[Rfam]
RNA sequence: ACCGAGCUCAGUAAUGUGGGCUUGUAACCCAAAUGGGGGUAACAACCUGGUGGAAUGUUGGGCCGCUCAAGAUGGUAGGGCUUGGUGGGCUAAUUUCUGGCCUGCCCUAUCCAAGCACAGAGUUGGGUCACGUAGCCCAAACGAAAGCAUGGGUUGCGGGACUCCUAAAGUGGGGCGGACCGCGUGAGGCUGGUUUCACAGAGCAACGAUUAGCUCUCGCUCUGUGCAAUGGAAGGAUAACGGGUCGGCGUUCUCCAGGCCCAACAAAUGCCUGAUGGGCUGCUCCAGUUAAACCACCACUUUU
Numbered sequence: 001a002c003c004g005a006g007c008u009c010a011g012u013a014a015u016g017u018g019g020g021c022u023u024g025u026a027a028c029c030c031a032a033a034u035g036g037g038g039g040u041a042a043c044a045a046c047c048u049g050g051u052g053g054a055a056u057g058u059u060g061g062g063c064c065g066c067u068c069a070a071g072a073u074g075g076u077a078g079g080g081c082u083u084g085g086u087g088g089g090c091u092a093a094u095u096u097c098u099g100g101c102c103u104g105c106c107c108u109a110u111c112c113a114a115g116c117a118c119a120g121a122g123u124u125g126g127g128u129c130a131c132g133u134a135g136c137c138c139a140a141a142c143g144a145a146a147g148c149a150u151g152g153g154u155u156g157c158g159g160g161a162c163u164c165c166u167a168a169a170g171u172g173g174g175g176c177g178g179a180c181c182g183c184g185u186g187a188g189g190c191u192g193g194u195u196u197c198a199c200a201g202a203g204c205a206a207c208g209a210u211u212a213g214c215u216c217u218c219g220c221u222c223u224g225u226g227c228a229a230u231g232g233a234a235g236g237a238u239a240a241c242g243g244g245u246c247g248g249c250g251u252u253c254u255c256c257a258g259g260c261c262c263a264a265c266a267a268a269u270g271c272c273u274g275a276u277g278g279g280c281u282g283c284u285c286c287a288g289u290u291a292a293a294c295c296a297c298c299a300c301u302u303u304u
Stems, first nucleotide, its partner, number of pairs: 001040003004023007028037003044303002048299006056291002058288003061284003065280002068278001070276001074272004078262008087253003091250001097248008106236002110233004115227009125164005131158009142147001165170001172217005183208003190201003
This 304-nucleotide RNA from Nicotiana tabacum belongs to the Rfam family "Plant signal recognition particle RNA". By type it is a non-coding RNA gene. Pairs were carried over by alignment from the consensus structure, which is taken from published work.